[Rfam]
RNA sequence: GCGGAUACGUCCGCAAGGGAUGUGGCCCGCAGGGGCUGAACCACAAA
Numbered sequence: 001g002c003g004g005a006u007a008c009g010u011c012c013g014c015a016a017g018g019g020a021u022g023u024g025g026c027c028c029g030c031a032g033g034g035g036c037u038g039a040a041c042c043a044c045a046a047a
Base pairs, nucleotide, nucleotide: 001014002013003012004011005010017042018041024037025036026035027034028033